Rfam assigns this 141-nucleotide sequence from Propithecus coquereli to the family "U4 spliceosomal RNA".
Rfam describes the family as follows. U4 small nuclear RNA (U4 snRNA) is a component of the major U2-dependent spliceosome.
Taxonomically the source falls in Propithecus (Eukaryota, Gnathostomata, Euarchontoglires, Lemuriformes).
It is annotated as a spliceosomal small nuclear RNA.
RNA sequence: AGCUUCGCGCAGUGUCGGUGUCGUAGACAAUGAGGUUUAUCCGAGGCAUGAUUAUUGCUAACUGAAUGCUUUCCCCCAUACUCUGCCAUGACGAUCUGACAUAUAGUCAGCGUUGGCAAUUUUUGACAAUCUCUAUGGAAA
Dot-bracket structure: ...................(((((.(.(.....((.....))..).))))))................................((((((..(((..........)))..))).)))............(.((....)).)